[Rfam]
RNA sequence: AUUCAAUACACAAUCCGAUUCCCGGAGUCCUAAGGCUGUCGCUAUGGAUCCGGGAACAUUGGGUUCAUGUGGAAACAUAUGGGCCUCCCGCGUUUGAAAAGGUUCGUGUACAUAUCUAAA
Numbered sequence: 001a002u003u004c005a006a007u008a009c010a011c012a013a014u015c016c017g018a019u020u021c022c023c024g025g026a027g028u029c030c031u032a033a034g035g036c037u038g039u040c041g042c043u044a045u046g047g048a049u050c051c052g053g054g055a056a057c058a059u060u061g062g063g064u065u066c067a068u069g070u071g072g073a074a075a076c077a078u079a080u081g082g083g084c085c086u087c088c089c090g091c092g093u094u095u096g097a098a099a100a101g102g103u104u105c106g107u108g109u110a111c112a113u114a115u116c117u118a119a120a
Stems, first nucleotide, its partner, number of pairs: 003114001011106001013104001015102002019056008028048003034043003061086011088096001

The family of this 120-nucleotide RNA sequence from Zhenpiania hominis is "Molybdenum/Tungsten riboswitch aptamer (Moco RNA motif)". Pairs were carried over by alignment from the consensus structure, which is taken from published work.